[Rfam]
RNA sequence: UUUUUUGAUGAACACUAUUUUUUAAGUUUAGUUCACCUGAGAUCUUCGGAUCGUUGAACGACAACCUUACCAUCUUUCACCUUUGUCUGAUA
Numbered sequence: 001u002u003u004u005u006u007g008a009u010g011a012a013c014a015c016u017a018u019u020u021u022u023u024a025a026g027u028u029u030a031g032u033u034c035a036c037c038u039g040a041g042a043u044c045u046u047c048g049g050a051u052c053g054u055u056g057a058a059c060g061a062c063a064a065c066c067u068u069a070c071c072a073u074c075u076u077u078c079a080c081c082u083u084u085g086u087c088u089g090a091u092a
Stems, first nucleotide, its partner, number of pairs: 008018003031059005041052004
The record is a 92-nucleotide RNA from Aspergillus avenaceus, which matches "A. fumigatus snoRNA Afu_263" in Rfam. NCBI's taxonomy places the organism under Eukaryota, Opisthokonta, Dikarya, Pezizomycotina, Aspergillus subgen. Circumdati. By type it is a C/D-box small nucleolar RNA. Pairs were carried over by alignment from the consensus structure. Clan: SNORD77 clan.